[Rfam]
RNA sequence: AGAUGUCUUCAGGGCAGGGUGAAAUUCCCGACCGGCGGUAAAGUCCGCGAGCGCUCAGAGCGCAGAAUUGGUUAGAUUCCAAUACCGACAGUAAAGUCUGGAUGAAAGAAGAUGUGU
Numbered sequence: 001a002g003a004u005g006u007c008u009u010c011a012g013g014g015c016a017g018g019g020u021g022a023a024a025u026u027c028c029c030g031a032c033c034g035g036c037g038g039u040a041a042a043g044u045c046c047g048c049g050a051g052c053g054c055u056c057a058g059a060g061c062g063c064a065g066a067a068u069u070g071g072u073u074a075g076a077u078u079c080c081a082a083u084a085c086c087g088a089c090a091g092u093a094a095a096g097u098c099u100g101g102a103u104g105a106a107a108g109a110a111g112a113u114g115u116g117u
Stems, first nucleotide, its partner, number of pairs: 003115008017029003031097002033087002035048004043085002051063003067083005089100003

FMN riboswitch aptamer (RFN element): a 117-nucleotide sequence from Lacrimispora xylanisolvens. A search with the family's covariance model found it, with a score of 120 bits. The RFN element is a highly conserved domain that is found frequently in the 5'-untranslated regions of prokaryotic mRNAs that encode for flavin mononucleotide (FMN) biosynthesis and transport proteins. Taxonomically the source falls in Lacrimispora (Bacteria, Bacillati, Bacillota, Lachnospiraceae).